[Rfam]
About this RNA
Rfam assigns this 125-nucleotide RNA from Paenibacillus larvae to the family "SAM riboswitch aptamer (S box leader)". A search with the family's covariance model found it, with a score of 90 bits. The SAM riboswitch is found upstream of a number of genes which code for proteins involved in methionine or cysteine biosynthesis in Gram-positive bacteria.
RNA sequence: UUCUUAUCAAGAGAGGCGGAGGGACAAGGCCCGAUGAAGCCCGGCAACCGAUUCAAGGCUGGUUAUAACCGCUUGAAUGUCAUGGUGCCAAUUCCUUCAGAACCGGAUGUUCUGGCAGAUGAGAA
Number, nucleotide and partner (000 for none) at each position: 001u125002u124003c123004u122005u121006a120007u119008c118009a000010a000011g000012a000013g042014a000015g041016g040017c039018g000019g000020a000021g032022g031023g030024a000025c000026a097027a096028g095029g094030c023031c022032c021033g000034a000035u000036g000037a000038a000039g017040c016041c015042c013043g089044g088045c087046a086047a000048c085049c084050g081051a080052u079053u000054c000055a000056a000057g000058g000059c000060u000061g000062g000063u000064u000065a000066u000067a000068a000069c000070c000071g000072c000073u000074u000075g000076a000077a000078u000079g052080u051081c050082a000083u000084g049085g048086u046087g045088c044089c043090a000091a000092u000093u117094c029095c028096u027097u026098c114099a113100g112101a111102a110103c109104c000105g000106g000107a000108u000109g103110u102111u101112c100113u099114g098115g000116c000117a093118g008119a007120u006121g005122a004123g003124a002125a001